Rfam assigns this 82-nucleotide sequence from Capra hircus to the family "mir-342 microRNA precursor family". Pairs were carried over by alignment from the consensus structure, which was predicted with RNAalifold. The literature on the family includes a 2010 paper in Genes Dev by Chiang et al., "Mammalian microRNAs: experimental evaluation of novel and previously annotated genes". Lineage of the source: Eukaryota > Euteleostomi > Tetrapoda > Theria > Capra.
RNA sequence: CGAGGCGAGGGGUGCUAUCUGUGGUUGAGGACACGGCAAAUGGAACUGUCUCACACAGAAAUCGCACCCAUCUCCUCGGCCC
Numbered sequence: 001c002g003a004g005g006c007g008a009g010g011g012g013u014g015c016u017a018u019c020u021g022u023g024g025u026u027g028a029g030g031a032c033a034c035g036g037c038a039a040a041u042g043g044a045a046c047u048g049u050c051u052c053a054c055a056c057a058g059a060a061a062u063c064g065c066a067c068c069c070a071u072c073u074c075c076u077c078g079g080c081c082c
Stems, first nucleotide, its partner, number of pairs: 001078005007072002010069006018059006026053005